[Rfam]
RNA sequence: AAGAAAUGAGGAGAAUGUCAUGCAGUCUGAGCAAACCGUGAAGACUGUCAGAUCCAACGCUGAUCUUGUAUUCUGU
Numbered sequence: 001a002a003g004a005a006a007u008g009a010g011g012a013g014a015a016u017g018u019c020a021u022g023c024a025g026u027c028u029g030a031g032c033a034a035a036c037c038g039u040g041a042a043g044a045c046u047g048u049c050a051g052a053u054c055c056a057a058c059g060c061u062g063a064u065c066u067u068g069u070a071u072u073c074u075g076u
Stems, first nucleotide, its partner, number of pairs: 001067004
Dot-bracket structure: ((((...........................................................)))).........
Annotation
Shown here is a 76-nucleotide RNA sequence from Aquarana catesbeiana, a member of the family "Small nucleolar RNA SNORD19". Rfam links the family to the GO terms nucleolus and RNA processing. It is annotated as a C/D-box small nucleolar RNA. On this family, see Huttenhofer et al., EMBO J 2001: "RNomics: an experimental approach that identifies 201 candidates for novel, small, non-messenger RNAs in mouse". Pairs were carried over by alignment from the consensus structure.